Source information: This 134-nucleotide RNA sequence from Glycine max belongs to the Rfam family "mir-393 microRNA precursor family". The sequence is in the family's curated seed alignment. For this family Rfam cites "Role of microRNAs and other sRNAs of plants in their changing environments" (Kruszka et al., J Plant Physiol, 2012). The source organism's lineage runs through Eukaryota, Magnoliopsida, Fabales, Phaseoleae and Glycine subgen. Soja.
RNA sequence: GGUGGAUAGUUCCAAAGGGAUCGCAUUGAUCUAAUUCUUUAUCUUCCUGCAUGUAUUUACUUGCAGCUCUGGUUUUGGACCUUUUUACCGGUUCACUGACUUGGAUCAUGCGAUCCCUUAGGAAUUUUCCAUCG
Numbered sequence: 001g002g003u004g005g006a007u008a009g010u011u012c013c014a015a016a017g018g019g020a021u022c023g024c025a026u027u028g029a030u031c032u033a034a035u036u037c038u039u040u041a042u043c044u045u046c047c048u049g050c051a052u053g054u055a056u057u058u059a060c061u062u063g064c065a066g067c068u069c070u071g072g073u074u075u076u077g078g079a080c081c082u083u084u085u086u087a088c089c090g091g092u093u094c095a096c097u098g099a100c101u102u103g104g105a106u107c108a109u110g111c112g113a114u115c116c117c118u119u120a121g122g123a124a125u126u127u128u129c130c131a132u133c134g
Base pairs, nucleotide, nucleotide: 002132003131004130005129006128008126009125010124011123012122013121015119016118017117018116019115020114021113023111024110025109026108028107029106030105031104032103033102034101